[Rfam]
RNA sequence: CAGUGAAUGUUCUCCUUGGUCUGAUUUUAUAAUAGUCAGGACAGGCUAACCAUUCACUAUAUUAAGACUUCACUUGUGUCCCCAAACCUAGUUCUUUCCCUAGGUCUGGUUUUAUAAAUGGUGAUAAGC
Numbered sequence: 001c002a003g004u005g006a007a008u009g010u011u012c013u014c015c016u017u018g019g020u021c022u023g024a025u026u027u028u029a030u031a032a033u034a035g036u037c038a039g040g041a042c043a044g045g046c047u048a049a050c051c052a053u054u055c056a057c058u059a060u061a062u063u064a065a066g067a068c069u070u071c072a073c074u075u076g077u078g079u080c081c082c083c084a085a086a087c088c089u090a091g092u093u094c095u096u097u098c099c100c101u102a103g104g105u106c107u108g109g110u111u112u113u114a115u116a117a118a119u120g121g122u123g124a125u126a127a128g129c
Stems, first nucleotide, its partner, number of pairs: 003057003016044003020040007067122002073120001082109003086105006
Dot-bracket structure: ..(((..........(((.(((((((.......))))))).)))..........))).........((....(........(((.((((((........)))))).)))..........))).......